The record is a 68-nucleotide sequence from Vulpes vulpes, which matches "mir-290 microRNA precursor family" in Rfam. The organism belongs to Vulpes, within Eukaryota. On this family, see Suh et al., Dev Biol 2004: "Human embryonic stem cells express a unique set of microRNAs". Gene Ontology terms of the family: RISC complex and miRNA-mediated post-transcriptional gene silencing. The base pairs follow the family's consensus structure, which was predicted with RNAalifold.
RNA sequence: GGGACACUCAAAAAAUGGCGGCACUUUCCUUCCUAGAACAGAAAGUGCCCCCAUAGUUUGAAUGGCAC
Numbered sequence: 001g002g003g004a005c006a007c008u009c010a011a012a013a014a015a016u017g018g019c020g021g022c023a024c025u026u027u028c029c030u031u032c033c034u035a036g037a038a039c040a041g042a043a044a045g046u047g048c049c050c051c052c053a054u055a056g057u058u059u060g061a062a063u064g065g066c067a068c
Stems, first nucleotide, its partner, number of pairs: 005064002008061005015054004020049009